[Rfam]
RNA sequence: UUACAUGGCCAACUGCUACUACAAAGUAGAGGAAAAUCCGCUCUAGCACUCGCUGUGAUGCGAGUAGUGUUCAUGCUAGACCCAAUAAGUCUAGGCAACAAUUAGUUGACGACUAGUGCAACAGAGACGAGCUUAUUUAGUUAAGAUGCAACGAUGUAAACUCCAUGAGCUAGAAACCCAAAUUUUGGUAGGGGAACUGGGAACAAGGAACCGAACAAAGAACCCGGAAGCCGAUUGGCUUAGAUAAAUAGUUGGCGCUAUUAAAAUAGUACAGAAAGCGGUUUAUAGUG
Numbered sequence: 001u002u003a004c005a006u007g008g009c010c011a012a013c014u015g016c017u018a019c020u021a022c023a024a025a026g027u028a029g030a031g032g033a034a035a036a037u038c039c040g041c042u043c044u045a046g047c048a049c050u051c052g053c054u055g056u057g058a059u060g061c062g063a064g065u066a067g068u069g070u071u072c073a074u075g076c077u078a079g080a081c082c083c084a085a086u087a088a089g090u091c092u093a094g095g096c097a098a099c100a101a102u103u104a105g106u107u108g109a110c111g112a113c114u115a116g117u118g119c120a121a122c123a124g125a126g127a128c129g130a131g132c133u134u135a136u137u138u139a140g141u142u143a144a145g146a147u148g149c150a151a152c153g154a155u156g157u158a159a160a161c162u163c164c165a166u167g168a169g170c171u172a173g174a175a176a177c178c179c180a181a182a183u184u185u186u187g188g189u190a191g192g193g194g195a196a197c198u199g200g201g202a203a204c205a206a207g208g209a210a211c212c213g214a215a216c217a218a219a220g221a222a223c224c225c226g227g228a229a230g231c232c233g234a235u236u237g238g239c240u241u242a243g244a245u246a247a248a249u250a251g252u253u254g255g256c257g258c259u260a261u262u263a264a265a266a267u268a269g270u271a272c273a274g275a276a277a278g279c280g281g282u283u284u285a286u287a288g289u290g
Base pairs, nucleotide, nucleotide: 004290005289006288007286008256009255010254011253012252013251014250016029017028018027019026020025034284035283036282038281039280040279041278042277043173044172045171046170047169048065049064050063051062052061053060071168072167073166074165075164076094077093078092079091080090081089095110096108097107098106099105111163112162116161117160118157119156120155132145133144134143135142177193178192179191197227198226199225200224201223228241229240230239231238232237258269259268260267261266
About this RNA: Rfam assigns this 290-nucleotide RNA from Metamycoplasma hominis to the family "Bacterial RNase P class B". Rfam links the family to the GO terms dimeric ribonuclease P complex, tRNA processing and ribonuclease P activity. It scores 214 bits against the family's covariance model.